[Rfam]
RNA sequence: UAGCUGGUGGAAGUUCAGUCAAGGUAACAGCCAAAUGGCCUUGUAGCUGACGGAAAGCUGGUGGAGAAAUCCUAAGGCUGAAGCUCCGUGACAAAGUGACUCGAAAGAGUUGCGAACACUCAUCAGACCGUAAUAUGA
Numbered sequence: 001u002a003g004c005u006g007g008u009g010g011a012a013g014u015u016c017a018g019u020c021a022a023g024g025u026a027a028c029a030g031c032c033a034a035a036u037g038g039c040c041u042u043g044u045a046g047c048u049g050a051c052g053g054a055a056a057g058c059u060g061g062u063g064g065a066g067a068a069a070u071c072c073u074a075a076g077g078c079u080g081a082a083g084c085u086c087c088g089u090g091a092c093a094a095a096g097u098g099a100c101u102c103g104a105a106a107g108a109g110u111u112g113c114g115a116a117c118a119c120u121c122a123u124c125a126g127a128c129c130g131u132a133a134u135a136u137g138a
Base pairs, nucleotide, nucleotide: 020043021042022041023040024039050089051088052087053086054085056079057078058077059076064071065070096113097112098111099110100109101108116131117130